[Rfam]
RNA sequence: GAUGCCCCUCGAGGCGUUGCAGCUCAGCUGAGUGCUGCAGCUGUGUCAGGAGGUGGCAGAGAGAAACCCGCUGGUGGUCUGCACCGAUUCUCCACGCCUCAGAGGACUCGGAGUCAUUCCCACCACCAACACU
Numbered sequence: 001g002a003u004g005c006c007c008c009u010c011g012a013g014g015c016g017u018u019g020c021a022g023c024u025c026a027g028c029u030g031a032g033u034g035c036u037g038c039a040g041c042u043g044u045g046u047c048a049g050g051a052g053g054u055g056g057c058a059g060a061g062a063g064a065a066a067c068c069c070g071c072u073g074g075u076g077g078u079c080u081g082c083a084c085c086g087a088u089u090c091u092c093c094a095c096g097c098c099u100c101a102g103a104g105g106a107c108u109c110g111g112a113g114u115c116a117u118u119c120c121c122a123c124c125a126c127c128a129a130c131a132c133u
Stems, first nucleotide, its partner, number of pairs: 003058004007053004013047003019044004024039001025037004070126001072125005081114002084111004088106005
Overview: This 133-nucleotide sequence from Kryptolebias marmoratus belongs to the Rfam family "Small nucleolar RNA SNORA17". Its family is annotated with RNA processing and nucleolus in the Gene Ontology. Pairs were carried over by alignment from the consensus structure, which was predicted with RNAalifold. About the family: snoRNA ACA 17 belongs to the H/ACA family of snoRNAs and is predicted to guide pseudouridylation of the 28S rRNA at positions U4659 and U4598. It shares the same host gene together with ACA43. NB This family has a high threshold value to exclude a large number of closely related sequences that do not appear to have conserved H and ACA boxes, and may be pseudogenes. On this family, see Ofengand and Bakin, J Mol Biol 1997: "Mapping to nucleotide resolution of pseudouridine residues in large subunit ribosomal RNAs from representative eukaryotes, prokaryotes, archaebacteria, mitochondria and chloroplasts".